[Rfam]
RNA sequence: CGCGCAUUGGAAUCAUGAUGACAGUGGUGCGACGGUGAGCUGAUAGGAGCGGAUCACGGGGAUCUAGUUACCGCUCCCGGUACAGCCCUCAGAUGUGAAAGUAGGCGCUUGAAGAUACGGGUCAAUGCUUCAAGAAUUCCGAAUUUUAUACACUGAUGAGGCCAAGCGCCGACUAGGGUGCGUCAGUCGUGGUAACUGGCGGAAAGCUUGGGCGCAGAG
Numbered sequence: 001c002g003c004g005c006a007u008u009g010g011a012a013u014c015a016u017g018a019u020g021a022c023a024g025u026g027g028u029g030c031g032a033c034g035g036u037g038a039g040c041u042g043a044u045a046g047g048a049g050c051g052g053a054u055c056a057c058g059g060g061g062a063u064c065u066a067g068u069u070a071c072c073g074c075u076c077c078c079g080g081u082a083c084a085g086c087c088c089u090c091a092g093a094u095g096u097g098a099a100a101g102u103a104g105g106c107g108c109u110u111g112a113a114g115a116u117a118c119g120g121g122u123c124a125a126u127g128c129u130u131c132a133a134g135a136a137u138u139c140c141g142a143a144u145u146u147u148a149u150a151c152a153c154u155g156a157u158g159a160g161g162c163c164a165a166g167c168g169c170c171g172a173c174u175a176g177g178g179u180g181c182g183u184c185a186g187u188c189g190u191g192g193u194a195a196c197u198g199g200c201g202g203a204a205a206g207c208u209u210g211g212g213c214g215c216a217g218a219g
Stems, first nucleotide, its partner, number of pairs: 001034002003031004046077006065175005087161005095153002162212001163210004181201006
Rfam assigns this 219-nucleotide sequence to the family "PAGEV RNA".